[Rfam]
RNA sequence: GAUUGAAAAAGGCAAACUUAUCGAAAGAUAAGGACGCAAAGCUUCAGAUCUAAGGCGUUUUUGCUAAGAUAGCUGGGUUACCAAU
Dot-bracket structure: ...........((...((((((....))))))...))..((((.((((((....(((....)))...)))..)))))))......